The record is a 132-nucleotide sequence from Carlito syrichta, which matches "Small Cajal body specific RNA 21" in Rfam. scaRNAs are a specific class of small nuclear RNAs which localise to the Cajal bodies and guide the modification of RNA polymerase II transcribed spliceosomal RNAs U1, U2, U4, U5 and U12. ACA68 (SCARNA21) is a member of the H/ACA class of snoRNAs that guide the sites of modification of uridines to pseudouridines. This snoRNA was identified by computational screening and its expression in mouse experimentally verified by Northern blot and primer extension analysis. ACA68 is proposed to guide the pseudouridylation of residue U19 in U12 snRNA.
RNA sequence: AGGUUCAGUCUUCUGAGGUUGGUCCAGCCUGCCCCAACACCCUCAGCUGAGCCUGGAAUGGAGGGUCAGGCAGCUCUACAUGGGAGAGGCAUUAAGUAAAGCGCCUCCCUGGGCUGUCCUGGCCUCACUCUG
Numbered sequence: 001a002g003g004u005u006c007a008g009u010c011u012u013c014u015g016a017g018g019u020u021g022g023u024c025c026a027g028c029c030u031g032c033c034c035c036a037a038c039a040c041c042c043u044c045a046g047c048u049g050a051g052c053c054u055g056g057a058a059u060g061g062a063g064g065g066u067c068a069g070g071c072a073g074c075u076c077u078a079c080a081u082g083g084g085a086g087a088g089g090c091a092u093u094a095a096g097u098a099a100a101g102c103g104c105c106u107c108c109c110u111g112g113g114c115u116g117u118c119c120u121g122g123c124c125u126c127a128c129u130c131u132g
Base pairs, nucleotide, nucleotide: 002053003052004051005050006049007048015041017040018038019037020036021035022034063126064125065123066122068120069119070118074113075112076111082106083105084104